The family of this 171-nucleotide RNA from Aneurinibacillus migulanus is "M-box riboswitch aptamer (ykoK leader)".
RNA sequence: AUGAAUCUUCGUUAGGUGAGGCUCCUAUACAAACAUAGGCCACUGCCCAGAAAUAUCGAAAGAUGCCCAUGGGUAGAACAGGGAUUGUCGGAUUAAGGCUUUUCCUAAUGUGGCUAAGAGAUGAUUUCUCUUUACGGUGUAUAGUGCUAAAACUCGACUAGGAGGGAACGG
Numbered sequence: 001a002u003g004a005a006u007c008u009u010c011g012u013u014a015g016g017u018g019a020g021g022c023u024c025c026u027a028u029a030c031a032a033a034c035a036u037a038g039g040c041c042a043c044u045g046c047c048c049a050g051a052a053a054u055a056u057c058g059a060a061a062g063a064u065g066c067c068c069a070u071g072g073g074u075a076g077a078a079c080a081g082g083g084a085u086u087g088u089c090g091g092a093u094u095a096a097g098g099c100u101u102u103u104c105c106u107a108a109u110g111u112g113g114c115u116a117a118g119a120g121a122u123g124a125u126u127u128c129u130c131u132u133u134a135c136g137g138u139g140u141a142u143a144g145u146g147c148u149a150a151a152a153c154u155c156g157a158c159u160a161g162g163a164g165g166g167a168a169c170g171g
Stems, first nucleotide, its partner, number of pairs: 006166005011158002013096001015154003020148003025144007039114005045074005054065004081105004087099003116132005

Source information:
The match comes from Rfam's covariance-model search (149 bits). Rfam 15.1 lists 1,095 matches to the family in 932 species. M-box riboswitch, also know as ykoK leader is described as a metaloregulatory RNA that sense divalent metals and function as a genetic control element of genes related to divalent metal transport in bacteria. It was first reported upstream of the B.subtilis ykoK gene and genes with related functions in other bacteria.